The record is a 114-nucleotide sequence from Leptotrombidium deliense, which matches "Potassium channel RNA editing signal" in Rfam. Taxonomically the source falls in Leptotrombidium (Eukaryota, Opisthokonta, Eumetazoa, Arachnida). Its family is annotated with adenosine to inosine editing in the Gene Ontology. For this family Rfam cites "Control of human potassium channel inactivation by editing of a small mRNA hairpin" (Bhalla et al., Nat Struct Mol Biol, 2004). The match comes from Rfam's covariance-model search (73 bits). Pairs were carried over by alignment from the consensus structure, which is taken from published work. By type it is a cis-regulatory element.

RNA sequence: GACAGAUACGGAGAUAUGGUUCCUGCAACGAUGACUGGUAAAAUCGUUGGUGGUGUGUGUUCAUUGAGUGGAGUGUUGGUCAUCGCAUUACCGGUGCCUGUGAUCGUAUCCAAU
Numbered sequence: 001g002a003c004a005g006a007u008a009c010g011g012a013g014a015u016a017u018g019g020u021u022c023c024u025g026c027a028a029c030g031a032u033g034a035c036u037g038g039u040a041a042a043a044u045c046g047u048u049g050g051u052g053g054u055g056u057g058u059g060u061u062c063a064u065u066g067a068g069u070g071g072a073g074u075g076u077u078g079g080u081c082a083u084c085g086c087a088u089u090a091c092c093g094g095u096g097c098c099u100g101u102g103a104u105c106g107u108a109u110c111c112a113a114u
Base pairs, nucleotide, nucleotide: 001114005110007108008107009106010105011104014101015100016099018097021094037077038076039075040074050062